[Rfam]
RNA: Plastid-ccsA-ndhD-1 3UTR RNA
Organism: Arachis duranensis
RNA sequence: GAAUUGUCGAGAACCCUUUAAAUCAAGUAGUAAUGUCAUGAUUCAAGCGGUUCUCAUAAA
Numbered sequence: 001g002a003a004u005u006g007u008c009g010a011g012a013a014c015c016c017u018u019u020a021a022a023u024c025a026a027g028u029a030g031u032a033a034u035g036u037c038a039u040g041a042u043u044c045a046a047g048c049g050g051u052u053c054u055c056a057u058a059a060a
Base pairs, nucleotide, nucleotide: 009055010054011053012052013051014050015049017047018046019045021043022042023041024040025039